Shown here is a 113-nucleotide RNA sequence from Corynebacterium glyciniphilum, a member of the family "TPP riboswitch aptamer (THI element)". The match comes from Rfam's covariance-model search (57 bits). The family's consensus secondary structure is taken from published work.
RNA sequence: UACGCGAACUACGGGAGCCUCCGACGCCGAGGCUGAGAGGACCGGACGCCACCGGUCGACCGUCGACACCUGAUGCGGAUCAUGCCGCCGGAGGAAAGAACGCACAUGCGCGA
Numbered sequence: 001u002a003c004g005c006g007a008a009c010u011a012c013g014g015g016a017g018c019c020u021c022c023g024a025c026g027c028c029g030a031g032g033c034u035g036a037g038a039g040g041a042c043c044g045g046a047c048g049c050c051a052c053c054g055g056u057c058g059a060c061c062g063u064c065g066a067c068a069c070c071u072g073a074u075g076c077g078g079a080u081c082a083u084g085c086c087g088c089c090g091g092a093g094g095a096a097a098g099a100a101c102g103c104a105c106a107u108g109c110g111c112g113a
Stems, first nucleotide, its partner, number of pairs: 006101001009098002011063004017033005040057005069094003075088004